[Rfam]
Nucleotides: 072
Base pairs, nucleotide, nucleotide: 014026016024017023028068030066035062036061042055044053045052046051
Number, partner (000 for none) and nucleotide at each position: 001000c002000u003000u004000c005000a006000c007000c008000g009000a010000c011000c012000c013000c014026a015000g016024c017023c018000a019000c020000a021000g022000c023017g024016g025000g026014u027000c028068c029000c030066c031000g032000g033000a034000g035062c036061g037000c038000c039000c040000g041000c042055g043000c044053c045052c046051g047000u048000a049000g050000g051046u052045g053044g054000c055042c056000a057000g058000c059000a060000g061036c062035g063000c064000g065000u066030g067000c068028g069000c070000c071000u072000c
Record summary:
ASpks TB sRNA: a 72-nucleotide sequence from Actinokineospora bangkokensis. Pairs were carried over by alignment from the consensus structure, which is taken from published work.